This 415-nucleotide sequence from Catellatospora methionotrophica belongs to the Rfam family "Bacterial RNase P class A". It is annotated as a ribozyme.
[Rfam]
RNA sequence: CGAGUCGGCCGGGCGGUCGCGUCAUCACGGGCUGCGGCCCGGCGGUGCCGAGGAACGUCCGGACUCCACAGGGCAGGGUGGUUGUUAACGGCAACCCGGGGCGACCCGCGGGACAGUGCCACAGAGAACAGACCGCCCGCCGCCCCUCGGGGCAGCGGGUAAGGGUGAAACGGUGAGGUAAGAGCUCACCAGCACCCCGGGUGACCGGGGUGGCUAGGUAAACCCCACCCGGAGCAAGACCAAGAAAGGCUGCUCGAUCCGCCUCGGCGGGCGGGUGGCCGCGCGGACGUUCGAGGGUGGCCCGCCCGAUGUCCGCGGGUAGGUUGCUCGAGCCUGUCGGCAACGGCAGGCCUAGAUGGAUGGCCGCCCCGCGCGCGAGCGCGGACAGAAUCCGGCGUACAGGCCGACUCGUCCG
Numbered sequence: 001c002g003a004g005u006c007g008g009c010c011g012g013g014c015g016g017u018c019g020c021g022u023c024a025u026c027a028c029g030g031g032c033u034g035c036g037g038c039c040c041g042g043c044g045g046u047g048c049c050g051a052g053g054a055a056c057g058u059c060c061g062g063a064c065u066c067c068a069c070a071g072g073g074c075a076g077g078g079u080g081g082u083u084g085u086u087a088a089c090g091g092c093a094a095c096c097c098g099g100g101g102c103g104a105c106c107c108g109c110g111g112g113a114c115a116g117u118g119c120c121a122c123a124g125a126g127a128a129c130a131g132a133c134c135g136c137c138c139g140c141c142g143c144c145c146c147u148c149g150g151g152g153c154a155g156c157g158g159g160u161a162a163g164g165g166u167g168a169a170a171c172g173g174u175g176a177g178g179u180a181a182g183a184g185c186u187c188a189c190c191a192g193c194a195c196c197c198c199g200g201g202u203g204a205c206c207g208g209g210g211u212g213g214c215u216a217g218g219u220a221a222a223c224c225c226c227a228c229c230c231g232g233a234g235c236a237a238g239a240c241c242a243a244g245a246a247a248g249g250c251u252g253c254u255c256g257a258u259c260c261g262c263c264u265c266g267g268c269g270g271g272c273g274g275g276u277g278g279c280c281g282c283g284c285g286g287a288c289g290u291u292c293g294a295g296g297g298u299g300g301c302c303c304g305c306c307c308g309a310u311g312u313c314c315g316c317g318g319g320u321a322g323g324u325u326g327c328u329c330g331a332g333c334c335u336g337u338c339g340g341c342a343a344c345g346g347c348a349g350g351c352c353u354a355g356a357u358g359g360a361u362g363g364c365c366g367c368c369c370c371g372c373g374c375g376c377g378a379g380c381g382c383g384g385a386c387a388g389a390a391u392c393c394g395g396c397g398u399a400c401a402g403g404c405c406g407a408c409u410c411g412u413c414c415g
Stems, first nucleotide, its partner, number of pairs: 001411010011400001012368007020050002023047004028042001055398003059395005064234004071303004076230005081095005096110001097108004111225002116223002118219003133164002135160006142153004172190006192214001193212008238325004295307004332351008